[Rfam]
RNA sequence: GUUGCGCGAUGAUGAUAACACAUUCCUCGUACCGAAGCCUGCGGGCAUGAGGACAAAAACAAUCUACCCAUAGAAUAUGAGCGCA
Number, nucleotide and partner (000 for none) at each position: 001g000002u000003u085004g084005c083006g082007c000008g000009a000010u000011g000012a000013u000014g000015a000016u000017a000018a000019c000020a000021c000022a000023u000024u000025c000026c000027u000028c000029g000030u000031a000032c000033c000034g000035a000036a000037g000038c000039c000040u000041g000042c000043g000044g000045g000046c000047a000048u000049g000050a000051g000052g000053a000054c000055a000056a000057a000058a000059a000060c000061a000062a000063u000064c000065u000066a000067c000068c000069c000070a000071u000072a000073g000074a000075a000076u000077a000078u000079g000080a000081g000082c006083g005084c004085a003

Small nucleolar RNA snoR8a: an 85-nucleotide sequence from Coccomyxa subellipsoidea. It scores 46 bits against the family's covariance model. Gene Ontology terms of the family: RNA processing and nucleolus.